RNA sequence: GGGGACGUUACGGAUUCGACAGGCACAGUUUGAGCUUGAAUUGCGUUUCGUAGGUUACGUCUACGUUAAAACGUUACAGUUAAAUAUAACUGCUAAAAACGAAAACAACUCUUACGCUUUAGCUGCCUAAAAACAGCCGGCGUAGAUCCUCUCGGCAUCGCCCAUGUGCUCGAGUAAGGGUCUCAAAUUCAGUGGGAUACGUAUCGACUUUCCGUCUGCAAGUCGAUAAAGAGAACAUCAGACUAGCGAUACAGACUGCCUGUCACUCGGCAAGCUGUAAAGCGAAACUUCAAAUGAGUUGACUAUGAACGUAGAUUUUUAAGUGGCGAUGUGUUUGGACGCGGGUUCGACUCCCGCCGUCUCCAUUG
Numbered sequence: 001g002g003g004g005a006c007g008u009u010a011c012g013g014a015u016u017c018g019a020c021a022g023g024c025a026c027a028g029u030u031u032g033a034g035c036u037u038g039a040a041u042u043g044c045g046u047u048u049c050g051u052a053g054g055u056u057a058c059g060u061c062u063a064c065g066u067u068a069a070a071a072c073g074u075u076a077c078a079g080u081u082a083a084a085u086a087u088a089a090c091u092g093c094u095a096a097a098a099a100c101g102a103a104a105a106c107a108a109c110u111c112u113u114a115c116g117c118u119u120u121a122g123c124u125g126c127c128u129a130a131a132a133a134c135a136g137c138c139g140g141c142g143u144a145g146a147u148c149c150u151c152u153c154g155g156c157a158u159c160g161c162c163c164a165u166g167u168g169c170u171c172g173a174g175u176a177a178g179g180g181u182c183u184c185a186a187a188u189u190c191a192g193u194g195g196g197a198u199a200c201g202u203a204u205c206g207a208c209u210u211u212c213c214g215u216c217u218g219c220a221a222g223u224c225g226a227u228a229a230a231g232a233g234a235a236c237a238u239c240a241g242a243c244u245a246g247c248g249a250u251a252c253a254g255a256c257u258g259c260c261u262g263u264c265a266c267u268c269g270g271c272a273a274g275c276u277g278u279a280a281a282g283c284g285a286a287a288c289u290u291c292a293a294a295u296g297a298g299u300u301g302a303c304u305a306u307g308a309a310c311g312u313a314g315a316u317u318u319u320u321a322a323g324u325g326g327c328g329a330u331g332u333g334u335u336u337g338g339a340c341g342c343g344g345g346u347u348c349g350a351c352u353c354c355c356g357c358c359g360u361c362u363c364c365a366u367u368g
Base pairs, nucleotide, nucleotide: 001364002363003362004361005360006359007358020337021336022335023334024333025332026331027330029328034324035323036322037321038320039319040318044311045310046309047308048307049065050064051063052062053061054077055076057074058073059072060071119140120139122137123136124135125134145182146181147180148179149178150177151174152173153172154171155169156168157167158166161196162195163194164193165192202228203227204226205225206224207223208222209221210220214244217241246283247282250279251278252277253276254275258271259270260269262303263302264301265300267296341357342356343355344354345353
Annotation: The record is a 368-nucleotide RNA from Enterococcus ratti, which matches "transfer-messenger RNA" in Rfam. Pairs were carried over by alignment from the consensus structure, which is taken from published work. Its Rfam clan is "tRNA clan". The family's RNA type in Rfam is non-coding RNA gene. It scores 216 bits against the family's covariance model. Taxonomically the source falls in Enterococcus (Bacteria, Bacillati, Bacilli, Enterococcaceae).